[Rfam]
Background:
U11 spliceosomal RNA: a 128-nucleotide sequence from Apium graveolens. By type it is a spliceosomal small nuclear RNA. A search with the family's covariance model found it, with a score of 76 bits. The source organism's lineage runs through Eukaryota, Streptophytina, eudicotyledons, Apiineae and Apium.
RNA sequence: UAAAAGGGUCGGUUGGCUAAAUAUGCCACGCUCUCCCUAGAAGGGGAGUGCUGUAUGGCUAUCAAGACAUAUGGCCGACAUAAUUUGUGGAACCCAAUAGGGUUGGCUCGCUUUGGCCGACCCUCUUA
Numbered sequence: 001u002a003a004a005a006g007g008g009u010c011g012g013u014u015g016g017c018u019a020a021a022u023a024u025g026c027c028a029c030g031c032u033c034u035c036c037c038u039a040g041a042a043g044g045g046g047a048g049u050g051c052u053g054u055a056u057g058g059c060u061a062u063c064a065a066g067a068c069a070u071a072u073g074g075c076c077g078a079c080a081u082a083a084u085u086u087g088u089g090g091a092a093c094c095c096a097a098u099a100g101g102g103u104u105g106g107c108u109c110g111c112u113u114u115g116g117c118c119g120a121c122c123c124u125c126u127u128a
Stems, first nucleotide, its partner, number of pairs: 008079005014028004029050008051074007097126001099124007108116003